Annotation: The record is a 100-nucleotide RNA, which matches "L4-Archaeoglobi ribosomal protein leades" in Rfam.
RNA sequence: CUGACGGGCGUGUCCGGGUCAAUUGCGGACUGCAACACCCGAUCUCCCUCGUUGUUCCCUCCGGAAUGGAGGUCGAGGCGGGAGAACGCGUGACCGUCAG
Numbered sequence: 001c002u003g004a005c006g007g008g009c010g011u012g013u014c015c016g017g018g019u020c021a022a023u024u025g026c027g028g029a030c031u032g033c034a035a036c037a038c039c040c041g042a043u044c045u046c047c048c049u050c051g052u053u054g055u056u057c058c059c060u061c062c063g064g065a066a067u068g069g070a071g072g073u074c075g076a077g078g079c080g081g082g083a084g085a086a087c088g089c090g091u092g093a094c095c096g097u098c099a100g
Base pairs, nucleotide, nucleotide: 001100002099003098004097005096008091009090010089011088012087013086015041016040017039018038023035024034025033026032027031043085044084045083046082047081048077049076050075051074
It is annotated as a cis-regulatory leader.